[Rfam]
RNA sequence: CACGUCUAACGGGGGUGCCCUAAUAGUACGGGCUGAGAUUAUACCCUUUAACCUGAUCCAGGUAGUGCUGGCGUAGGGAGUAAAGCGAUUUCUUGU
Numbered sequence: 001c002a003c004g005u006c007u008a009a010c011g012g013g014g015g016u017g018c019c020c021u022a023a024u025a026g027u028a029c030g031g032g033c034u035g036a037g038a039u040u041a042u043a044c045c046c047u048u049u050a051a052c053c054u055g056a057u058c059c060a061g062g063u064a065g066u067g068c069u070g071g072c073g074u075a076g077g078g079a080g081u082a083a084a085g086c087g088a089u090u091u092c093u094u095g096u
Stems, first nucleotide, its partner, number of pairs: 007083001009081002011047004016041001017033004052077004058071004
Dot-bracket structure: ......(.((((((.(((((.........)))).......)..))))....((((..((((......))))..))))..)).).............

The record is a 96-nucleotide sequence from Acetobacteroides hydrogenigenes, which matches "TPP riboswitch aptamer (THI element)" in Rfam. The source organism's lineage runs through Bacteria, Pseudomonadati, Bacteroidota, Rikenellaceae and Acetobacteroides. Rfam links the family to the GO term thiamine pyrophosphate binding. The family's consensus secondary structure is taken from published work.